[Rfam]
RNA sequence: CGGGCGGGCCGUGACUGGCGCGUUCGGAUGGGCUGACCAUCGGGGAGCGGCCUCGUCGAGACGACGACUUGCCGUGCGCCUGGGCCUCUUCA
Numbered sequence: 001c002g003g004g005c006g007g008g009c010c011g012u013g014a015c016u017g018g019c020g021c022g023u024u025c026g027g028a029u030g031g032g033c034u035g036a037c038c039a040u041c042g043g044g045g046a047g048c049g050g051c052c053u054c055g056u057c058g059a060g061a062c063g064a065c066g067a068c069u070u071g072c073c074g075u076g077c078g079c080c081u082g083g084g085c086c087u088c089u090u091c092a
Stems, first nucleotide, its partner, number of pairs: 003056001006053007015044002017080005028040004071085003